[Rfam]
Shown here is a 157-nucleotide RNA from Solicola gregarius, a member of the family "c-di-AMP riboswitch aptamer (ydaO/yuaA leader)".
RNA sequence: GCGGGCACGCCGCCUAAUCCGGCUCGCGAGGGAAGUCGCGUGCCGGAGCCGGGGAACCACGUACGUGGGGUGAGUCGGCGUCGACCUGUCGUCGCCGUAGGGCAAGUCCUUGGCCCGAACCCGUCAGCUCACCUGGUAGGCGUCGAGGAAAGGGGAC
Numbered sequence: 001g002c003g004g005g006c007a008c009g010c011c012g013c014c015u016a017a018u019c020c021g022g023c024u025c026g027c028g029a030g031g032g033a034a035g036u037c038g039c040g041u042g043c044c045g046g047a048g049c050c051g052g053g054g055a056a057c058c059a060c061g062u063a064c065g066u067g068g069g070g071u072g073a074g075u076c077g078g079c080g081u082c083g084a085c086c087u088g089u090c091g092u093c094g095c096c097g098u099a100g101g102g103c104a105a106g107u108c109c110u111u112g113g114c115c116c117g118a119a120c121c122c123g124u125c126a127g128c129u130c131a132c133c134u135g136g137u138a139g140g141c142g143u144c145g146a147g148g149a150a151a152g153g154g155g156a157c
Base pairs, nucleotide, nucleotide: 011142012141013140014139018047019046020045021044022043023042048137049136050135051134052133053132058067059066068122069121070120076097077096078095079094100116101115102114103113

Its family is annotated with regulation of gene expression and cyclic-di-AMP binding in the Gene Ontology. The source organism's lineage runs through Bacteria, Bacillati, Actinomycetota, Propionibacteriales and Solicola.